[Rfam]
Annotation:
SAM-III riboswitch aptamer (SMK box): an 85-nucleotide RNA from Enterococcus saccharolyticus.

RNA sequence: GACCGUUGCAAGUUCCCGAAAGGAUUCAUUUGUGUAGCAAAUGAAGAUGCCUUGUAACCGACAAAUAUUAGGGGGAAUCAUCAUG
Dot-bracket structure: ............(((((..((((.(((((((.......)))))))....))))....((...........)))))))........
The source organism's lineage runs through Bacteria, Bacilli, Enterococcaceae, Enterococcus saccharolyticus and Enterococcus saccharolyticus subsp. saccharolyticus.